[Rfam]
Shown here is a 214-nucleotide RNA from Populus trichocarpa, a member of the family "Plant small nucleolar RNA U3".
From the family's description: Small nucleolar RNAs (snoRNAs) are involved in the processing and modification of rRNA in the nucleolus. There are two main classes of snoRNAs: the box C/D class, and the box H/ACA class. U3 snoRNA is a member of the box C/D class. Indeed, the box C/D element is a subset of the six short sequence elements found in all U3 snoRNAs, namely boxes A, A', B, C, C', and D. The U3 snoRNA secondary structure is characterised by a small 5' domain (with boxes A and A'), and a larger 3' domain (with boxes B, C, C', and D), the two domains being linked by a single-stranded hinge.
Gene Ontology terms of the family: nucleolus and RNA processing.
It is annotated as a C/D-box small nucleolar RNA.
RNA sequence: ACGACCUUACUUGAACAGGAUCUGUUCUAUAGGAUCGUACCUCUGUAUCCUUAAUCACUAAGGAGACAGGAACCUAAGCCUGGUUGAGGAAUUGUGACCGCUUGAUCAUAGCGUGAGUAAUGGCUUGAUUGUCCUCGUGAUCAUCAUGGCUGUAGAGGAUCGUUUCCUAGCCAUUUACCUGGCUGGGAAUGGUCUUGCGGUUGUCUGACAGGGU
Numbered sequence: 001a002c003g004a005c006c007u008u009a010c011u012u013g014a015a016c017a018g019g020a021u022c023u024g025u026u027c028u029a030u031a032g033g034a035u036c037g038u039a040c041c042u043c044u045g046u047a048u049c050c051u052u053a054a055u056c057a058c059u060a061a062g063g064a065g066a067c068a069g070g071a072a073c074c075u076a077a078g079c080c081u082g083g084u085u086g087a088g089g090a091a092u093u094g095u096g097a098c099c100g101c102u103u104g105a106u107c108a109u110a111g112c113g114u115g116a117g118u119a120a121u122g123g124c125u126u127g128a129u130u131g132u133c134c135u136c137g138u139g140a141u142c143a144u145c146a147u148g149g150c151u152g153u154a155g156a157g158g159a160u161c162g163u164u165u166c167c168u169a170g171c172c173a174u175u176u177a178c179c180u181g182g183c184u185g186g187g188a189a190u191g192g193u194c195u196u197g198c199g200g201u202u203g204u205c206u207g208a209c210a211g212g213g214u
Stems, first nucleotide, its partner, number of pairs: 001038002003035001005033003013027006043069004048064006079212004097201005104194005110164004120153006126146004131141003165188009